[Rfam]
RNA sequence: UCAUCUUUUACUCCGUAUUAACACUGAGGUUGAUGUUCGCAGUAACUAACCAUCAGCCUCGCUGUCAAUACGGCGUAACUGAUGG
Numbered sequence: 001u002c003a004u005c006u007u008u009u010a011c012u013c014c015g016u017a018u019u020a021a022c023a024c025u026g027a028g029g030u031u032g033a034u035g036u037u038c039g040c041a042g043u044a045a046c047u048a049a050c051c052a053u054c055a056g057c058c059u060c061g062c063u064g065u066c067a068a069u070a071c072g073g074c075g076u077a078a079c080u081g082a083u084g085g
Base pairs, nucleotide, nucleotide: 002084003083004082005081008078009077010076011075014072015071016070017069018068019067021065022064023063025061026060028058029057030056031055032054033053034052035051